Annotation: A member of the RNA family "Small nucleolar RNA Z221/R21b" from Raphanus sativus, 80 nucleotides long. By type it is a C/D-box small nucleolar RNA. Gene Ontology terms of the family: RNA processing and nucleolus. Taxonomically the source falls in Raphanus (Eukaryota, Spermatophyta, Magnoliopsida, Gunneridae). The family has 12 seed sequences and 588 matches in Rfam 15.1.
[Rfam]
RNA sequence: AGGCAGUGAUGAUUGAGAAUGUCAUGCACCACUCUGAUUUCGUGCUGAUAACUAUCUCUACCCAUAUAAUUUCUGAGCCU
Numbered sequence: 001a002g003g004c005a006g007u008g009a010u011g012a013u014u015g016a017g018a019a020u021g022u023c024a025u026g027c028a029c030c031a032c033u034c035u036g037a038u039u040u041c042g043u044g045c046u047g048a049u050a051a052c053u054a055u056c057u058c059u060a061c062c063c064a065u066a067u068a069a070u071u072u073c074u075g076a077g078c079c080u
Stems, first nucleotide, its partner, number of pairs: 001080004